[Rfam]
RNA: eL15-Euryarchaeota ribosomal protein leader
RNA sequence: CCUGCUCUCGCAGGCCGGAAUGUGGUCCCGACGGGCGAUCCGGACGGACUGAACCACGAA
Numbered sequence: 001c002c003u004g005c006u007c008u009c010g011c012a013g014g015c016c017g018g019a020a021u022g023u024g025g026u027c028c029c030g031a032c033g034g035g036c037g038a039u040c041c042g043g044a045c046g047g048a049c050u051g052a053a054c055c056a057c058g059a060a
Stems, first nucleotide, its partner, number of pairs: 001014005017055002024050005